RNA sequence: UUGCAAUGUAGCAUACCCGUUUGGUGAAAUACUCUGAUGAUUAUUGUUAUUUAUUUACUUUGGGUACGGGGUGUUACACUGUA
Numbered sequence: 001u002u003g004c005a006a007u008g009u010a011g012c013a014u015a016c017c018c019g020u021u022u023g024g025u026g027a028a029a030u031a032c033u034c035u036g037a038u039g040a041u042u043a044u045u046g047u048u049a050u051u052u053a054u055u056u057a058c059u060u061u062g063g064g065u066a067c068g069g070g071g072u073g074u075u076a077c078a079c080u081g082u083a
Stems, first nucleotide, its partner, number of pairs: 002083004007078008016070005